Shown here is a 233-nucleotide RNA, a member of the family "Group II catalytic intron D1-D4-6". Pairs were carried over by alignment from the consensus structure. Rfam's curators put it in the seed alignment. Group II introns are found in rRNA, tRNA and mRNA of organelles in fungi, plants and protists, and also in mRNA in bacteria. The literature on the family includes a 2001 paper in Trends Genet by Bonen and Vogel, "The ins and outs of group II introns".
RNA sequence: CCAAUCCAGCGCAUGCAACGGUUAGCAGCCAGCAUGGAAUCGAACCGCACGUAUGAGGAGGCAACAAAUCAUGCGAAGCUGCGGUAAGAGCGUCUCGUCAGCCGCAACGCAAGUGAAGGUUAUAAGCCCCGAAAUGUCCCUAUGUGCGACGGGCCAAGGGUUUCAUUCCCCCGAAGCCAGCAUCGUGCCGUCCGCUACGCGAGGACGGCACGGCACGCCGGGGUCCCAGACCG
Number, nucleotide and partner (000 for none) at each position: 001c000002c000003a000004a000005u000006c000007c000008a000009g000010c000011g000012c036013a035014u034015g033016c032017a000018a000019c000020g030021g029022u028023u202024a000025g200026c199027a000028g022029c021030c020031a000032g016033c015034a014035u013036g012037g000038a000039a000040u089041c088042g000043a000044a085045c084046c083047g082048c000049a000050c075051g074052u073053a072054u071055g070056a069057g000058g000059a000060g065061g000062c000063a000064a000065c060066a000067a000068a000069u056070c055071a054072u053073g052074c051075g050076a000077a000078g000079c000080u000081g000082c047083g046084g045085u044086a000087a000088g041089a040090g000091c000092g000093u000094c000095u000096c000097g000098u000099c000100a000101g000102c000103c000104g000105c000106a000107a000108c000109g000110c000111a000112a000113g000114u000115g000116a000117a000118g000119g000120u000121u000122a000123u000124a000125a000126g224127c223128c222129c221130c220131g219132a000133a000134a000135u000136g000137u000138c000139c000140c000141u000142a000143u000144g000145u000146g218147c217148g216149a000150c000151g214152g178153g177154c176155c000156a000157a000158g171159g170160g169161u000162u000163u000164c000165a000166u000167u000168c000169c160170c159171c158172c000173g000174a000175a000176g154177c153178c152179a000180g000181c000182a000183u213184c212185g211186u210187g209188c208189c207190g206191u205192c204193c203194g000195c000196u000197a000198c000199g026200c025201g000202a023203g193204g192205a191206c190207g189208g188209c187210a186211c185212g184213g183214c151215a000216c148217g147218c146219c131220g130221g129222g128223g127224u126225c000226c000227c000228a000229g000230a000231c000232c000233g000